[Rfam]
RNA sequence: GGUUAACGCGAGGAGACAGACAUGGGACUCACGCAAUCCUUGAAUGUUCUGUUGGUCAGUGCAGCGUUUGCUUUCGUCCUGUCCAUGCUCUUUAUUUGAGCUGACGGGCCGGUAAUGCUGAUAGUGCCUAAACUCCCCUGAUCAAUCCGCCAACGAAAAAGCGCAUGUCCCGCCCGACAUGCGCUUU
Dot-bracket structure: ..............((((.....((((.........))))....)))).............................................................................................................((((((((((((......))))))))))))